[Rfam]
RNA sequence: GGGUGUACGCGCAGUGGGGCGCGGCAGGUUCAUGCGCUGGUCGGGCCGCCGCG
Numbered sequence: 001g002g003g004u005g006u007a008c009g010c011g012c013a014g015u016g017g018g019g020c021g022c023g024g025c026a027g028g029u030u031c032a033u034g035c036g037c038u039g040g041u042c043g044g045g046c047c048g049c050c051g052c053g
Base pairs, nucleotide, nucleotide: 005025006024008023009022010021011020012019035053036052037051039050040049041048